[Rfam]
Nucleotides: 088
Base pairs, nucleotide, nucleotide: 001088002087003086004085
Number, partner (000 for none) and nucleotide at each position: 001088u002087u003086g004085c005000u006000g007000u008000g009000a010000u011000g012000a013000a014000a015000g016000c017000u018000a019000g020000c021000u022000u023000c024000u025000g026000u027000g028000g029000u030000u031000u032000c033000g034000c035000a036000a037000a038000g039000u040000c041000u042000g043000a044000g045000a046000u047000g048000a049000u050000c051000g052000u053000g054000a055000u056000g057000a058000c059000c060000c061000c062000a063000a064000g065000c066000u067000c068000c069000u070000u071000g072000g073000c074000u075000g076000u077000g078000a079000u080000u081000c082000u083000g084000a085004g086003c087002a088001a
Small nucleolar RNA SNORD53/SNORD92: an 88-nucleotide RNA sequence from Lingula anatina. Lineage of the source: Eukaryota > Lingulida > Linguloidea > Lingulidae > Lingula. The pairing is the family consensus, mapped onto this sequence. Its family is annotated with nucleolus and RNA processing in the Gene Ontology. Its Rfam clan is "SNORD52 clan". Rfam classes the family as a C/D-box small nucleolar RNA.